[Rfam]
RNA sequence: AUCACCUUAUAUGACUGACGGAAUGAGUGGAAUAGACCACGUGAAGUAUAAGAGUAUUGAGCCGACCGUCUGGGCAGAAAAA
Number, nucleotide and partner (000 for none) at each position: 001a000002u000003c054004a000005c052006c000007u051008u050009a049010u048011a047012u046013g000014a000015c043016u000017g070018a069019c068020g067021g066022a000023a000024u000025g000026a000027g040028u039029g038030g037031a000032a000033u000034a000035g000036a000037c030038c029039a028040c027041g000042u000043g015044a000045a000046g012047u011048a010049u009050a008051a007052g005053a000054g003055u000056a000057u000058u000059g000060a000061g075062c074063c073064g000065a000066c021067c020068g019069u018070c017071u000072g000073g063074g062075c061076a000077g000078a000079a000080a000081a000082a000
Shown here is an 82-nucleotide sequence from Faecalicoccus pleomorphus, a member of the family "ZMP/ZTP riboswitch aptamer (pfl RNA motif)". The family's consensus secondary structure is taken from published work. The literature on the family includes a 2015 paper in Nat Struct Mol Biol by Jones and Ferre-D'Amare, "Recognition of the bacterial alarmone ZMP through long-distance association of two RNA subdomains". Taxonomically the source falls in Faecalicoccus (Bacteria, Bacillota, Erysipelotrichia, Erysipelotrichales). The match comes from Rfam's covariance-model search (58 bits).